[Rfam]
RNA sequence: AUUAACAAAUAGCAAAUCCGUUGAAAGACGGAGACGCAAAGCCAUGAGUCUAACGCAAAAUAAAUUGCUAUGAUAGUCAGGUUGCCGAU
Numbered sequence: 001a002u003u004a005a006c007a008a009a010u011a012g013c014a015a016a017u018c019c020g021u022u023g024a025a026a027g028a029c030g031g032a033g034a035c036g037c038a039a040a041g042c043c044a045u046g047a048g049u050c051u052a053a054c055g056c057a058a059a060a061u062a063a064a065u066u067g068c069u070a071u072g073a074u075a076g077u078c079a080g081g082u083u084g085c086c087g088a089u
Stems, first nucleotide, its partner, number of pairs: 012037002017032006040083004045079003048074003055068004
Rfam assigns this 89-nucleotide RNA from Clostridium oryzae to the family "c-di-GMP-I riboswitch aptamer". Rfam links the family to the GO term cyclic-di-GMP binding. Lineage of the source: Bacteria > Bacillati > Clostridia > Eubacteriales > Clostridium.